[Rfam]
RNA sequence: AAAUUGAAUUGUUAGGUGAGGCUCCUAUAAAGACACAUGCUACUGCCCAGAAAAAUCGAGAGAUUCCAAUGGGUUAGCAGGAAUUAUCGCAAAGGUAAUUUUUAAUGUAGCUGACGACAAGUCUAAGCUUUAUAGUGCUAAAGCUCUACAACUAAAAGAUACU
Number, nucleotide and partner (000 for none) at each position: 001a000002a000003a000004u000005u159006g000007a000008a000009u155010u154011g149012u148013u093014a000015g145016g144017u143018g000019a000020g139021g138022c137023u000024c000025c135026u134027a133028u132029a131030a130031a129032g128033a000034c000035a000036c000037a000038u000039g111040c110041u109042a108043c107044u000045g074046c073047c072048c071049a070050g000051a000052a000053a000054a065055a064056u063057c062058g000059a000060g000061a000062g057063a056064u055065u054066c000067c000068a000069a000070u049071g048072g047073g046074u045075u000076a000077g000078c000079a000080g102081g101082a100083a099084u000085u000086a096087u095088c094089g000090c000091a000092a000093a013094g088095g087096u086097a000098a000099u083100u082101u081102u080103u000104a000105a000106u000107g043108u042109a041110g040111c039112u000113g123114a122115c121116g000117a000118c000119a000120a000121g115122u114123c113124u000125a000126a000127g000128c032129u031130u030131u029132a028133u027134a026135g025136u000137g022138c021139u020140a000141a000142a000143g017144c016145u015146c000147u000148a012149c011150a000151a000152c000153u000154a010155a009156a000157a000158g000159a005160u000161a000162c000163u000
Record summary: A member of the RNA family "M-box riboswitch aptamer (ykoK leader)" from Clostridium senegalense, 163 nucleotides long. Pairs were carried over by alignment from the consensus structure. For this family Rfam cites "New RNA motifs suggest an expanded scope for riboswitches in bacterial genetic control" (Barrick et al., Proc Natl Acad Sci U S A, 2004). A search with the family's covariance model found it, with a score of 135 bits.